[Rfam]
RNA sequence: AGGAGUUGCCAAGAGUAAGACACUUGAUUUAAAGUCUAGCUGAUAAGUAGGUAUUCCAUAAGAAUACACUUCUACUACGAACUCAGUCGCAAGUUGUGAGAUUAGCUACCUCAUGAUUUAGUGAACGUCAGUAACGUUGCAGUUAUUUAUAUUUAGAAGUUAUAAAUAUUACUGCUAAAUAACUCCUC
Numbered sequence: 001a002g003g004a005g006u007u008g009c010c011a012a013g014a015g016u017a018a019g020a021c022a023c024u025u026g027a028u029u030u031a032a033a034g035u036c037u038a039g040c041u042g043a044u045a046a047g048u049a050g051g052u053a054u055u056c057c058a059u060a061a062g063a064a065u066a067c068a069c070u071u072c073u074a075c076u077a078c079g080a081a082c083u084c085a086g087u088c089g090c091a092a093g094u095u096g097u098g099a100g101a102u103u104a105g106c107u108a109c110c111u112c113a114u115g116a117u118u119u120a121g122u123g124a125a126c127g128u129c130a131g132u133a134a135c136g137u138u139g140c141a142g143u144u145a146u147u148u149a150u151a152u153u154u155a156g157a158a159g160u161u162a163u164a165a166a167u168a169u170u171a172c173u174g175c176u177a178a179a180u181a182a183c184u185c186c187u188c
Stems, first nucleotide, its partner, number of pairs: 010026004040086004047078004051067005069159006087124004091119003095115006125137004140174004144168008
Record summary
RAGATH-14 RNA: a 188-nucleotide sequence.